[Rfam]
RNA sequence: UGUCGGUGGGAGAAAUCGACUUGGCUUUUUAUUUCUAUCAGUCAGUCUUUUUCUCUCUCCUAUA
Numbered sequence: 001u002g003u004c005g006g007u008g009g010g011a012g013a014a015a016u017c018g019a020c021u022u023g024g025c026u027u028u029u030u031a032u033u034u035c036u037a038u039c040a041g042u043c044a045g046u047c048u049u050u051u052u053c054u055c056u057c058u059c060c061u062a063u064a
Base pairs, nucleotide, nucleotide: 001064002063003062005060006059008057010055011054012053013052015050018047019046020045021044024042025041026040